This 110-nucleotide sequence from Vanilla planifolia belongs to the Rfam family "mir-166 microRNA precursor family".
The literature on the family includes a 2002 paper in Genes Dev by Reinhart et al., "MicroRNAs in plants".
It scores 77 bits against the family's covariance model.
Rfam's curators write: This family represents the plant microRNA (miRNA) precursor mir-166.
Lineage of the source: Eukaryota > Viridiplantae > Magnoliopsida > Orchidaceae > Vanilla.

RNA sequence: UUUGAGGGGAAUGUUGUCUGGCUCGAGGCCUCUCCGUCGUCCACGACCGAGGCGAGAGAGAGAGAGAGAGAGAGAGAGAGGUCCUCGGACCAGGCUUCAUUCCCCCCAAC
Numbered sequence: 001u002u003u004g005a006g007g008g009g010a011a012u013g014u015u016g017u018c019u020g021g022c023u024c025g026a027g028g029c030c031u032c033u034c035c036g037u038c039g040u041c042c043a044c045g046a047c048c049g050a051g052g053c054g055a056g057a058g059a060g061a062g063a064g065a066g067a068g069a070g071a072g073a074g075a076g077a078g079a080g081g082u083c084c085u086c087g088g089a090c091c092a093g094g095c096u097u098c099a100u101u102c103c104c105c106c107c108a109a110c
Stems, first nucleotide, its partner, number of pairs: 002109003006105008016095006024087003